[Rfam]
Nucleotides: 064
Stems, first nucleotide, its partner, number of pairs: 012064014027049001029048004
Number, partner (000 for none) and nucleotide at each position: 001000u002000g003000c004000c005000c006000u007000g008000g009000c010000u011000c012064a013063g014062u015061u016060a017059u018058c019057a020056c021055a022054g023053u024052g025051c026000u027049g028000a029048u030047g031046c032045u033000g034000u035000c036000u037000c038000u039000u040000g041000u042000a043000a044000a045032g046031g047030u048029a049027c050000a051025g052024u053023a054022c055021u056020g057019u058018g059017a060016u061015a062014a063013c064012u